[Rfam]
RNA sequence: UUGCAUGUUAAAAAAAGAAUAAUUCUGCCCCUCAUUCCCAUGAGGAGCAGGAAUAUAUAAAACAUGCUACAGCAAACAAGGAGUUUUCAGGGCUGCCAGUCUUGAAGUAAAGACUGAGUGGUAGUAUAGGUCUCCUACAUGU
Numbered sequence: 001u002u003g004c005a006u007g008u009u010a011a012a013a014a015a016a017g018a019a020u021a022a023u024u025c026u027g028c029c030c031c032u033c034a035u036u037c038c039c040a041u042g043a044g045g046a047g048c049a050g051g052a053a054u055a056u057a058u059a060a061a062a063c064a065u066g067c068u069a070c071a072g073c074a075a076a077c078a079a080g081g082a083g084u085u086u087u088c089a090g091g092g093c094u095g096c097c098a099g100u101c102u103u104g105a106a107g108u109a110a111a112g113a114c115u116g117a118g119u120g121g122u123a124g125u126a127u128a129g130g131u132c133u134c135c136u137a138c139a140u141g142u
Stems, first nucleotide, its partner, number of pairs: 003067006024051005030045002080135004092122002096118001097116007
RNA: Small nucleolar RNA U109